[Rfam]
RNA sequence: CAGUGUUACCACUCUGUUAGAAUUUAUCUAGCAGGUUUUUCAGUUUUACCAGAAAAUCCCCC
Numbered sequence: 001c002a003g004u005g006u007u008a009c010c011a012c013u014c015u016g017u018u019a020g021a022a023u024u025u026a027u028c029u030a031g032c033a034g035g036u037u038u039u040u041c042a043g044u045u046u047u048a049c050c051a052g053a054a055a056a057u058c059c060c061c062c
Stems, first nucleotide, its partner, number of pairs: 034059002037056005043050001
RNA: U7 small nuclear RNA
Organism: Prolemur simus